RNA sequence: GGACGAAACUCUGGAGAGACUCAUUGAGCACCGAAGGGGAAAGCCUAAUUUUUAGGUGAAACUCUCAGGUAAAAGGACAGAGAAUUUUCA
Numbered sequence: 001g002g003a004c005g006a007a008a009c010u011c012u013g014g015a016g017a018g019a020c021u022c023a024u025u026g027a028g029c030a031c032c033g034a035a036g037g038g039g040a041a042a043g044c045c046u047a048a049u050u051u052u053u054a055g056g057u058g059a060a061a062c063u064c065u066c067a068g069g070u071a072a073a074a075g076g077a078c079a080g081a082g083a084a085u086u087u088u089c090a
Base pairs, nucleotide, nucleotide: 006085009082010081011080012079013078020028021027022026030070031069032068033066034065037064038063039062043057044056045055046054
Glycine riboswitch aptamer: a 90-nucleotide RNA from Natranaerovirga pectinivora. NCBI's taxonomy places the organism under Bacteria, Bacillati, Lachnospirales, Natranaerovirgaceae, Natranaerovirga. From the family's description: This family represents the bacterial glycine riboswitch. Glycine riboswitches usually consist of two metabolite-binding aptamers domains with similar structures in tandem. The aptamers cooperatively bind glycine to regulate the expression of downstream genes. In Bacillus subtilis, this riboswitch is found upstream of the gcvT operon which controls glycine degradation.